[Rfam]
RNA sequence: GUUGGUAAUUAUAAGCUAAAAUACAAUUUUGAAAGCAAUUCACAAC
Numbered sequence: 001g002u003u004g005g006u007a008a009u010u011a012u013a014a015g016c017u018a019a020a021a022u023a024c025a026a027u028u029u030u031g032a033a034a035g036c037a038a039u040u041c042a043c044a045a046c
Base pairs, nucleotide, nucleotide: 003044004043007040008039009038010037016031018029019028020027